[Rfam]
RNA sequence: AAAACAGCUCAAGGCCACAGCAGAAGCACUUACGGUGCAGUCCUGUCAGAUUCCAGUGAAUCUGCGAAUUCUGUU
Number, nucleotide and partner (000 for none) at each position: 001a000002a000003a000004a000005c000006a000007g000008c000009u000010c000011a000012a000013g042014g041015c040016c000017a000018c000019a075020g074021c073022a072023g071024a070025a069026g038027c037028a036029c000030u000031u000032a000033c000034g000035g000036u028037g027038c026039a000040g015041u014042c013043c000044u000045g000046u000047c064048a063049g062050a061051u060052u059053c058054c000055a000056g000057u000058g053059a052060a051061u050062c049063u048064g047065c000066g000067a000068a000069u025070u024071c023072u022073g021074u020075u019